[Rfam]
RNA sequence: CCCGAUGAUGCUUUUAAAUCUUUGAGACCGGACACCUUGAAUGUCGACAAUACCAAGCAAACUCCUGAGGGU
Numbered sequence: 001c002c003c004g005a006u007g008a009u010g011c012u013u014u015u016a017a018a019u020c021u022u023u024g025a026g027a028c029c030g031g032a033c034a035c036c037u038u039g040a041a042u043g044u045c046g047a048c049a050a051u052a053c054c055a056a057g058c059a060a061a062c063u064c065c066u067g068a069g070g071g072u
Stems, first nucleotide, its partner, number of pairs: 001071003032042001033039002
RNA: Small nucleolar RNA R66